[Rfam]
RNA sequence: CCCCUUUUAAAAUCUGCGCAAAAGAACUAUAUUAAAGGCGUUGGGAAACCAACUAUGGUAAUAAACGUUUCAUGGAAUAAACGUUGCGGACCCGGGGGCGGUACCCGGCGCCUCCACCAUAAAGGCAGAUAUAUACAAGUAAUCAGCUGUCUUUUUGAUGGGGGCGAAAUAGGCUCGACGCGCGCAGUAAAGAUGUAAUUUUUACCCGGCAUGAUACCACCGACAUCGGGUCAUUUUUAUAAAUGCUAACGAUAAUGACGAAGCAUUUGCCGUAGCUGCUUAAUUGCACUACACGGGGUUCGGAGGGGCACCUGGCAACAGAAGCCCCUCCACU
Numbered sequence: 001c002c003c004c005u006u007u008u009a010a011a012a013u014c015u016g017c018g019c020a021a022a023a024g025a026a027c028u029a030u031a032u033u034a035a036a037g038g039c040g041u042u043g044g045g046a047a048a049c050c051a052a053c054u055a056u057g058g059u060a061a062u063a064a065a066c067g068u069u070u071c072a073u074g075g076a077a078u079a080a081a082c083g084u085u086g087c088g089g090a091c092c093c094g095g096g097g098g099c100g101g102u103a104c105c106c107g108g109c110g111c112c113u114c115c116a117c118c119a120u121a122a123a124g125g126c127a128g129a130u131a132u133a134u135a136c137a138a139g140u141a142a143u144c145a146g147c148u149g150u151c152u153u154u155u156u157g158a159u160g161g162g163g164g165c166g167a168a169a170u171a172g173g174c175u176c177g178a179c180g181c182g183c184g185c186a187g188u189a190a191a192g193a194u195g196u197a198a199u200u201u202u203u204a205c206c207c208g209g210c211a212u213g214a215u216a217c218c219a220c221c222g223a224c225a226u227c228g229g230g231u232c233a234u235u236u237u238u239a240u241a242a243a244u245g246c247u248a249a250c251g252a253u254a255a256u257g258a259c260g261a262a263g264c265a266u267u268u269g270c271c272g273u274a275g276c277u278g279c280u281u282a283a284u285u286g287c288a289c290u291a292c293a294c295g296g297g298g299u300u301c302g303g304a305g306g307g308g309c310a311c312c313u314g315g316c317a318a319c320a321g322a323a324g325c326c327c328c329u330c331c332a333c334u
Stems, first nucleotide, its partner, number of pairs: 040053005057206005067199003071195003082184003086181003092108005109166007207222003212233003217229002296313004302331006
Alphaproteobacteria transfer-messenger RNA: a 334-nucleotide RNA from Sneathiella litorea. The match comes from Rfam's covariance-model search (269 bits). NCBI's taxonomy places the organism under Bacteria, Pseudomonadati, Pseudomonadota, Alphaproteobacteria, Sneathiella. Bacterial tmRNA, also known as 10Sa RNA or SsrA, is named for its dual tRNA and mRNA-like properties. The family's RNA type in Rfam is non-coding RNA gene.